[Rfam]
RNA sequence: GGUCCAGGGCGAGGCAGUGAUCCGCCGAGCGUACGUGGUCGCUCGAGCACGGCGGGGAGUCAGUAGCGAAACCGGCGCCCGAGGAC
Numbered sequence: 001g002g003u004c005c006a007g008g009g010c011g012a013g014g015c016a017g018u019g020a021u022c023c024g025c026c027g028a029g030c031g032u033a034c035g036u037g038g039u040c041g042c043u044c045g046a047g048c049a050c051g052g053c054g055g056g057g058a059g060u061c062a063g064u065a066g067c068g069a070a071a072c073c074g075g076c077g078c079c080c081g082a083g084g085a086c
Stems, first nucleotide, its partner, number of pairs: 001086001003084002007080005013061003022055006029048001037073002039069005